A member of the RNA family "mir-35_2 microRNA precursor family" from Caenorhabditis brenneri, 61 nucleotides long.
Rfam's curators put it in the seed alignment.
The family is grouped with related families in Rfam's "mir-36 clan".
RNA sequence: AGCUGGUUUCUUCUUCGGUGAUAAUUCCAUUGAGUGUCUAUCACCGGGAGUAAUUGGCUCG
Dot-bracket structure: (((.((.((((((..((((((((...............)))))))))))).)))).)))..